Overview
Shown here is a 77-nucleotide RNA sequence from Brachypteracias leptosomus, a member of the family "Small nucleolar RNA SNORD53/SNORD92". The base pairs follow the family's consensus structure. Rfam links the family to the GO terms nucleolus and RNA processing. On this family, see Kiss-Laszlo et al., Cell 1996: "Site-specific ribose methylation of preribosomal RNA: a novel function for small nucleolar RNAs". Its Rfam clan is "SNORD52 clan".

RNA sequence: UUGCUAUGAUGAUAACCCACUUGGUUUCGCUUACUCCUGAUGUGCAGUGAGGACAUUCCACUUGGCUGUCUGAGCAG
Numbered sequence: 001u002u003g004c005u006a007u008g009a010u011g012a013u014a015a016c017c018c019a020c021u022u023g024g025u026u027u028c029g030c031u032u033a034c035u036c037c038u039g040a041u042g043u044g045c046a047g048u049g050a051g052g053a054c055a056u057u058c059c060a061c062u063u064g065g066c067u068g069u070c071u072g073a074g075c076a077g
Stems, first nucleotide, its partner, number of pairs: 001077004